[Rfam]
Record summary: ASpks TB sRNA: a 72-nucleotide RNA sequence from Streptomyces genisteinicus. It scores 73 bits against the family's covariance model. The source organism's lineage runs through Bacteria, Bacillati, Actinomycetota, Kitasatosporales and Streptomyces.
RNA sequence: CUUGAUCGACCCCAGCCACAACGGCUCCCCAGCCCGCUCCCGGCCAUACGUCGCCAGCAGCGCCUGCGCCUC
Dot-bracket structure: .............((((.....)))).....((.((...(.(.(.(....).).).)...))...)).....